[Rfam]
RNA sequence: GCGCGCUGGCGGGGUCGGUGAAAUUCCGAACCGGCGGUAACGGAGCACGUCUCCGCGAGCCCGCGACCCGUCCACCACCAGUGGACGGUUGAUCCGGUGAGAGCCCGGAGCCGACGGUCAGAGUCCGGAUGGAAGUUGGCGCGC
Numbered sequence: 001g002c003g004c005g006c007u008g009g010c011g012g013g014g015u016c017g018g019u020g021a022a023a024u025u026c027c028g029a030a031c032c033g034g035c036g037g038u039a040a041c042g043g044a045g046c047a048c049g050u051c052u053c054c055g056c057g058a059g060c061c062c063g064c065g066a067c068c069c070g071u072c073c074a075c076c077a078c079c080a081g082u083g084g085a086c087g088g089u090u091g092a093u094c095c096g097g098u099g100a101g102a103g104c105c106c107g108g109a110g111c112c113g114a115c116g117g118u119c120a121g122a123g124u125c126c127g128g129a130u131g132g133a134a135g136u137u138g139g140c141g142c143g144c
Base pairs, nucleotide, nucleotide: 003142004141005140006139007138008137009136010135016028017027018026030124031123032113033112034064035063036062037061059111060110068088069087093109094108095107096106097105115127116126117125